[Rfam]
RNA sequence: UUUCAUAUGGUAAAAAGCUUGAUAUUUUUUUGUUUUUGGGCUAUAAUUACAUAGCUAACUUAACAAGAGUAUUGGUGUGUGGUAAUCCGCCGGGGCUCGUGCAAUAGGAAACUAUGAACCUCGUCAGGUCCGAAAGGAAGCAGCGAUAAGUAGAAAUUCUUAUGUGCCACGAGGGUACCUGGCGGGUUAUCAUACACGAGUACUUUUUAGUUGGUGGAA
Number, nucleotide and partner (000 for none) at each position: 001u219002u218003u217004c216005a000006u000007a000008u054009g000010g052011u051012a026013a025014a000015a023016a000017g000018c000019u000020u000021g000022a000023u015024a000025u013026u012027u000028u000029u000030u000031u049032g048033u000034u046035u045036u000037u000038g000039g000040g000041c000042u000043a000044u000045a035046a034047u000048u032049a031050c000051a011052u010053a000054g008055c214056u213057a212058a211059c210060u209061u000062a000063a000064c000065a207066a206067g205068a204069g203070u202071a000072u200073u199074g000075g197076u196077g195078u194079g193080u192081g191082g000083u000084a000085a190086u189087c185088c184089g183090c182091c181092g180093g179094g178095g000096c173097u172098c171099g170100u169101g168102c164103a163104a000105u162106a161107g160108g159109a158110a000111a000112c153113u152114a151115u150116g000117a000118a000119c000120c000121u146122c145123g144124u143125c000126a000127g000128g000129u138130c137131c136132g000133a000134a000135a000136g131137g130138a129139a000140g000141c000142a000143g124144c123145g122146a121147u000148a000149a000150g115151u114152a113153g112154a000155a000156a000157u000158u109159c108160u107161u106162a105163u103164g102165u000166g000167c000168c101169a100170c099171g098172a097173g096174g000175g000176u000177a000178c094179c093180u092181g091182g090183c089184g088185g087186g000187u000188u000189a086190u085191c081192a080193u079194a078195c077196a076197c075198g000199a073200g072201u000202a070203c069204u068205u067206u066207u065208u000209a060210g059211u058212u057213g056214g055215u000216g004217g003218a002219a001